A member of the RNA family "Eukaryotic small subunit ribosomal RNA" from Schizosaccharomyces pombe, 166 nucleotides of a longer RNA.

RNA sequence: CCGCCCGUCGCUACUACCGAUUGAAUGGCUUAGUGAGGCCUCUGGAUUGGCUUGUUUCUGCUGGCAACGGCGGAAACAUUGCCGAGAAGUUGGACAAACUUGGUCAUUUAGAGGAAGUAAAAGUCGUAACAAGGUUUCCGUAGGUGAACCUGCGGAAGGAUCAUUA
Dot-bracket structure: (.(..((.(..((((.((..(.((((((((.(((..(.((..(...(((((.(((((.((((......)))).)))))..)))))...)..)).)..))).)))))))))..)).))))...).))...)..).((((((((((....))))))))))........